[Rfam]
RNA sequence: GGUGGUUCUCGGGUGACGCACCCUGGAAUCGGGCUCCUCCUCUCUGAUUCCAGGUGCAUCACCCGAGAACUGCA
Number, nucleotide and partner (000 for none) at each position: 001g000002g073003u072004g000005g070006u069007u068008c067009u066010c065011g064012g063013g062014u061015g060016a059017c000018g000019c056020a055021c054022c053023c000024u000025g051026g050027a049028a048029u047030c046031g045032g044033g043034c000035u000036c000037c000038u000039c000040c000041u000042c000043u033044c032045u031046g030047a029048u028049u027050c026051c025052a000053g022054g021055u020056g019057c000058a000059u016060c015061a014062c013063c012064c011065g010066a009067g008068a007069a006070c005071u000072g003073c002074a000
Background
A member of the RNA family "mir-9223 microRNA precursor family" from Cnephaeus nilssonii, 74 nucleotides long. The match comes from Rfam's covariance-model search (81 bits). Pairs were carried over by alignment from the consensus structure, which was predicted with RNAalifold. Rfam 15.1 lists 14,641 matches to the family in 28 species.